This 74-nucleotide sequence from Leptobrachium leishanense belongs to the Rfam family "mir-29 microRNA precursor family". The family has 168 seed sequences and 3,328 matches in Rfam 15.1. For this family Rfam cites "microRNAs: tiny regulators with great potential" (Ambros, Cell, 2001). Pairs were carried over by alignment from the consensus structure, which was predicted with PFOLD. It scores 50 bits against the family's covariance model. The organism belongs to Leptobrachium, within Eukaryota. Gene Ontology terms of the family: gene silencing by miRNA and RISC complex. Rfam describes the family as follows. This family represents the microRNA (miRNA) precursors mir-29.

RNA sequence: UGGCAACCGGCUUCAUCUGGAGCAAAAAAUAAGAUAGCUAUCUUAUUUUUUGCUCCAGAUGAAGCCGGUUGCCA
Numbered sequence: 001u002g003g004c005a006a007c008c009g010g011c012u013u014c015a016u017c018u019g020g021a022g023c024a025a026a027a028a029a030u031a032a033g034a035u036a037g038c039u040a041u042c043u044u045a046u047u048u049u050u051u052g053c054u055c056c057a058g059a060u061g062a063a064g065c066c067g068g069u070u071g072c073c074a
Stems, first nucleotide, its partner, number of pairs: 001074004005069001007068009017058006025051004
Dot-bracket structure: (((((.(((((((((.((((((..((((...................)))).)))))).)))))))))).))))